[Rfam]
RNA: c-di-GMP-I riboswitch aptamer
Organism: Allocoprococcus comes
RNA sequence: UGUUUAUAGGGGCAAAGCUGUUGAAAAACUGUGACGCAAAGCCAAAGGGACUAAGGCAGUACGCUAUGUCAGCCGGUUGCAAUA
Numbered sequence: 001u002g003u004u005u006a007u008a009g010g011g012g013c014a015a016a017g018c019u020g021u022u023g024a025a026a027a028a029c030u031g032u033g034a035c036g037c038a039a040a041g042c043c044a045a046a047g048g049g050a051c052u053a054a055g056g057c058a059g060u061a062c063g064c065u066a067u068g069u070c071a072g073c074c075g076g077u078u079g080c081a082a083u084a
Stems, first nucleotide, its partner, number of pairs: 012037002017032002020029003040078004047074002049070003056064002